[Rfam]
RNA: glmS glucosamine-6-phosphate activated ribozyme aptamer
RNA sequence: AACGAUUGACAAGCGCCAGAGCUUGCUGAUGGAGAUGACGGUCGCGUCAUAAAGGCAAGCUGACGAGGUGGAGGUGUUCGAACAUGUUCGGCGGGGACCUCCCGGUUACGCAUUCGAACCGUAAGCCGAUACGUCAAAAGGAGACGGGCAACCGCUCUGACAAACGUUCGGCGGAAUGCGC
Numbered sequence: 001a002a003c004g005a006u007u008g009a010c011a012a013g014c015g016c017c018a019g020a021g022c023u024u025g026c027u028g029a030u031g032g033a034g035a036u037g038a039c040g041g042u043c044g045c046g047u048c049a050u051a052a053a054g055g056c057a058a059g060c061u062g063a064c065g066a067g068g069u070g071g072a073g074g075u076g077u078u079c080g081a082a083c084a085u086g087u088u089c090g091g092c093g094g095g096g097a098c099c100u101c102c103c104g105g106u107u108a109c110g111c112a113u114u115c116g117a118a119c120c121g122u123a124a125g126c127c128g129a130u131a132c133g134u135c136a137a138a139a140g141g142a143g144a145c146g147g148g149c150a151a152c153c154g155c156u157c158u159g160a161c162a163a164a165c166g167u168u169c170g171g172c173g174g175a176a177u178g179c180g181c
Stems, first nucleotide, its partner, number of pairs: 020061008070102005078091004103121005126171004131167002140158004145154003